RNA: 6S / SsrS RNA
Organism: Firmicutes bacterium CAG:424
RNA sequence: AAAGUCCUGGGGUGUUCGAUGAUCCCAUUUAUUUUGAACCUACAUUACUUUAAACGGGAUUCCUACAUUGCGGUAACUGAUGUCAGGCCGUCAUUAUGCAGCGGAAGACAGAGGUGAAGCUGCGGUUGCCCACCUAGCAUAAGCUAGGAGUCAGAAGAUGGGAAACGGCACUUUGGGACUUAA
Numbered sequence: 001a002a003a004g005u006c007c008u009g010g011g012g013u014g015u016u017c018g019a020u021g022a023u024c025c026c027a028u029u030u031a032u033u034u035u036g037a038a039c040c041u042a043c044a045u046u047a048c049u050u051u052a053a054a055c056g057g058g059a060u061u062c063c064u065a066c067a068u069u070g071c072g073g074u075a076a077c078u079g080a081u082g083u084c085a086g087g088c089c090g091u092c093a094u095u096a097u098g099c100a101g102c103g104g105a106a107g108a109c110a111g112a113g114g115u116g117a118a119g120c121u122g123c124g125g126u127u128g129c130c131c132a133c134c135u136a137g138c139a140u141a142a143g144c145u146a147g148g149a150g151u152c153a154g155a156a157g158a159u160g161g162g163a164a165a166c167g168g169c170a171c172u173u174u175g176g177g178a179c180u181u182a183a
Base pairs, nucleotide, nucleotide: 002181003180004179005178006177007176008175009174010173011172012171013170014169015168017167018166032158033157034156035153036152037151039148040147056131057130058129062125063124067121070120071119074116076115077114083108084107088104089103090102091101